[Rfam]
RNA sequence: AUAGAUAAAGGGAAUGAAGUGCUCCCUUCGUACAUACGUAAACCGCUUAUUGCUGAUGACUUCUACAGAUUU
Numbered sequence: 001a002u003a004g005a006u007a008a009a010g011g012g013a014a015u016g017a018a019g020u021g022c023u024c025c026c027u028u029c030g031u032a033c034a035u036a037c038g039u040a041a042a043c044c045g046c047u048u049a050u051u052g053c054u055g056a057u058g059a060c061u062u063c064u065a066c067a068g069a070u071u072u
Stems, first nucleotide, its partner, number of pairs: 010026004016063005045053002
Dot-bracket structure: .........[[[[..(((((..]]]]..................((.....)).....))))).........
RNA: Fluoride riboswitch aptamer (crcB RNA motif)